This 75-nucleotide sequence from Streptomyces sp. FH025 belongs to the Rfam family "ASpks TB sRNA".
Pairs were carried over by alignment from the consensus structure, which is taken from published work.
The family has 77 seed sequences and 9,052 matches in Rfam 15.1.
By type it is an antisense RNA.

RNA sequence: CUUCACCGACCCCAGCCACAGCGGCUCGUUCCCCGCGCGCUCCUGGCCGUACGUCGCCAGCAGGGCCUGCGCCUC
Numbered sequence: 001c002u003u004c005a006c007c008g009a010c011c012c013c014a015g016c017c018a019c020a021g022c023g024g025c026u027c028g029u030u031c032c033c034c035g036c037g038c039g040c041u042c043c044u045g046g047c048c049g050u051a052c053g054u055c056g057c058c059a060g061c062a063g064g065g066c067c068u069g070c071g072c073c074u075c
Base pairs, nucleotide, nucleotide: 014026015025016024017023031071033069038065043060044059045058047056049054